[Rfam]
RNA: MIR398 microRNA precursor family
RNA sequence: AAAUGUUCAAUAGGGGCAAUCUGAGAUCACAUGUUUGGUUUGAUUCCUCGAAUCUCGCGCAUAGUGAAAGCGUGUAUCUCAACAUGUGUUCUCAGGUCGCCCCUGUCGAAUUAUU
Numbered sequence: 001a002a003a004u005g006u007u008c009a010a011u012a013g014g015g016g017c018a019a020u021c022u023g024a025g026a027u028c029a030c031a032u033g034u035u036u037g038g039u040u041u042g043a044u045u046c047c048u049c050g051a052a053u054c055u056c057g058c059g060c061a062u063a064g065u066g067a068a069a070g071c072g073u074g075u076a077u078c079u080c081a082a083c084a085u086g087u088g089u090u091c092u093c094a095g096g097u098c099g100c101c102c103c104u105g106u107c108g109a110a111u112u113a114u115u
Base pairs, nucleotide, nucleotide: 007109008108011105012104013103014102016100017099019097023093024092025091026090028088029087030086031085032084033083034082035081